RNA sequence: GCCGAGCUGGGUAACGCUGGCUUGUAAUCCGAGUGGGGGCAUUGAGGUGAUUGGACAAUGACUCGGCCCACCUGGCAGGGUUUAUGGGUGCUACUUUCUGGCCCGCCCGUUGCAAGUCGAGAGUUGAAUCAUGUGGGCCGAGCGAAAGCCUGUGCUUCGUGCUCCUAUAGCGGAGGGCACCGCGUGAGGCUGGAUUCACAGAGCAGCGAAAACCUCCCGCUUUCAACAGUGGAAGGAUAACGGGCCGGAGCAUCCUAGACCCAAAUUGCCUGGUGGGCUGAGAUCAAUCGGACAAUCACCUUU
Dot-bracket structure: ((((((((((......)))))))....(((....))))))...((((((((((..(..((((((((((((((.(((((((((((.(.(((.(.....((((((((.((.((.((.((.((((((.((..((((.((..((.((....)).))..)).)))).))(....).(((((......(((....(((......)))....)))....))))).)))))).))..)).))))....)))))))).))))).)))))))....)))).))))))))))).)))...)..)))))))))).

Notes: A member of the RNA family "Plant signal recognition particle RNA" from Corchorus capsularis, 303 nucleotides long. The family is grouped with related families in Rfam's "SRP clan". Rfam 15.1 lists 4,988 matches to the family in 266 species. Taxonomically the source falls in Corchorus (Eukaryota, Streptophyta, Euphyllophyta, Malvaceae). On this family, see Wild et al., Curr Opin Struct Biol 2002: "Towards the structure of the mammalian signal recognition particle". Rfam classes the family as a non-coding RNA gene. The family's consensus secondary structure is taken from published work.